The family of this 84-nucleotide sequence from Catenisphaera adipataccumulans is "ZMP/ZTP riboswitch aptamer (pfl RNA motif)". The family's consensus secondary structure is taken from published work. Rfam links the family to the GO terms regulation of purine nucleotide biosynthetic process and one-carbon metabolic process. The source organism's lineage runs through Bacteria, Bacillati, Bacillota, Erysipelotrichales and Catenisphaera. It scores 63 bits against the family's covariance model.
RNA sequence: AGUAUCUUAUAUGACUGACGGUAUUGUGGAGCCUACCACAUGGGAGUAUAAGAAAGUAAAGAGCCGACCGUCUGGGCUGAUAAG
Numbered sequence: 001a002g003u004a005u006c007u008u009a010u011a012u013g014a015c016u017g018a019c020g021g022u023a024u025u026g027u028g029g030a031g032c033c034u035a036c037c038a039c040a041u042g043g044g045a046g047u048a049u050a051a052g053a054a055a056g057u058a059a060a061g062a063g064c065c066g067a068c069c070g071u072c073u074g075g076g077c078u079g080a081u082a083a084g
Stems, first nucleotide, its partner, number of pairs: 003055001005053008015043002017072005026039004062078004